Pseudomonas sRNA P9: an 83-nucleotide RNA from Cupriavidus agavae. The family's RNA type in Rfam is non-coding RNA gene. It scores 52 bits against the family's covariance model. About the family: This small RNA (sRNA) was computationally identified in the genome of the opportunistic pathogen Pseudomonas aeruginosa and its expression verified by northern blot analysis. P9 appears to be conserved in several Pseudomonas species in addition to Bordetella spp. In both Pseudomonas and Bordetella spp P9 appears to be located upstream of a predicted threonine dehydratase gene. P9 has a predicted Rho independent terminator at the 3' end but the function of P9 is unknown. This sRNA also appears to be present in the Betaproteobacteria (Burkholderia and Ralstonia species). The source organism's lineage runs through Bacteria, Betaproteobacteria, Burkholderiales, Burkholderiaceae and Cupriavidus.
RNA sequence: GCGAUUAUUCGCACCAUUCCUCGAAUGGUGGGUUAGCGCGCGUCCGGAACAGACAAACAAACCCGCCCAGCCAGGCGGGUUUU
Numbered sequence: 001g002c003g004a005u006u007a008u009u010c011g012c013a014c015c016a017u018u019c020c021u022c023g024a025a026u027g028g029u030g031g032g033u034u035a036g037c038g039c040g041c042g043u044c045c046g047g048a049a050c051a052g053a054c055a056a057a058c059a060a061a062c063c064c065g066c067c068c069a070g071c072c073a074g075g076c077g078g079g080u081u082u083u
Stems, first nucleotide, its partner, number of pairs: 012030006059082009